[Rfam]
RNA sequence: GUUUUAUCCAUGACGGUGUUUCCUCUAAACCUGCAAGGGGGAACGCCCGAUUUCCGUGAAAAU
Numbered sequence: 001g002u003u004u005u006a007u008c009c010a011u012g013a014c015g016g017u018g019u020u021u022c023c024u025c026u027a028a029a030c031c032u033g034c035a036a037g038g039g040g041g042a043a044c045g046c047c048c049g050a051u052u053u054c055c056g057u058g059a060a061a062a063u
Base pairs, nucleotide, nucleotide: 001063002062003061004060005059015047016046017045018044019043020042021041022040023039024038030037